[Rfam]
mir-9195 microRNA precursor family: an 87-nucleotide RNA from Pipistrellus kuhlii.
The family's consensus secondary structure was predicted with RNAalifold.
The organism belongs to Pipistrellus, within Eukaryota.
RNA sequence: AGAGGUCCUCUGAGGCUGCGGUGGAAUGCUUGCCUUGUCGCCGCAGCAAUGAAGCAAGCAUUCCACCAGGCCCCUCAUGCUGCCUAC
Number, nucleotide and partner (000 for none) at each position: 001a000002g000003a000004g084005g083006u082007c000008c000009u000010c000011u000012g074013a000014g072015g071016c070017u069018g000019c000020g067021g066022u065023g064024g063025a062026a061027u060028g059029c058030u057031u056032g055033c054034c000035u000036u000037g050038u049039c000040g047041c046042c000043g000044c000045a000046g041047c040048a000049a038050u037051g000052a000053a000054g033055c032056a031057a030058g029059c028060a027061u026062u025063c024064c023065a022066c021067c020068a000069g017070g016071c015072c014073c000074c012075u000076c000077a000078u000079g000080c000081u000082g006083c005084c004085u000086a000087c000